RNA sequence: GUACAUCCAAUAAAAAUUAAACUUACAAAUUCGUUAAUUAUGAGUUGAGCGCUUUAGCCACUUAGCUAUGGAUGU
Numbered sequence: 001g002u003a004c005a006u007c008c009a010a011u012a013a014a015a016a017u018u019a020a021a022c023u024u025a026c027a028a029a030u031u032c033g034u035u036a037a038u039u040a041u042g043a044g045u046u047g048a049g050c051g052c053u054u055u056a057g058c059c060a061c062u063u064a065g066c067u068a069u070g071g072a073u074g075u
Stems, first nucleotide, its partner, number of pairs: 003075006011025003040069003044066006051059001
Background:
The record is a 75-nucleotide sequence from Gossypium anomalum, which matches "Plastid-ycf2 5UTR RNA" in Rfam. A search with the family's covariance model found it, with a score of 69 bits. The family's RNA type in Rfam is cis-regulatory element. The family has 204 seed sequences and 3,521 matches in Rfam 15.1. Pairs were carried over by alignment from the consensus structure, which was predicted with LocARNA.